This 64-nucleotide RNA from Cnephaeus nilssonii belongs to the Rfam family "mir-9242 microRNA precursor family". NCBI's taxonomy places the organism under Eukaryota, Eumetazoa, Deuterostomia, Tetrapoda, Cnephaeus. It scores 66 bits against the family's covariance model.
RNA sequence: GGCCUCCCUCUGUUGGUCGAUCCAUCUCGGGGCUCUGUGAUCGAUCGCCCAGCAGAGGGAGGCC
Numbered sequence: 001g002g003c004c005u006c007c008c009u010c011u012g013u014u015g016g017u018c019g020a021u022c023c024a025u026c027u028c029g030g031g032g033c034u035c036u037g038u039g040a041u042c043g044a045u046c047g048c049c050c051a052g053c054a055g056a057g058g059g060a061g062g063c064c
Base pairs, nucleotide, nucleotide: 001064002063003062004061005060006059007058008057009056010055011054012053013052014051015050016049018047019046020045021044022043024041025040026039028037029036030035